[Rfam]
RNA: Sulfolobus sRNA133
RNA sequence: AAGGUACUCAAUGAUACUUUCCGUGUCCUCGAAGGGAGUUAGUCCCGUAGACGGCAUGGGGAG
Dot-bracket structure: ................((((...((((.((...((((.....))))...)).)))).))))..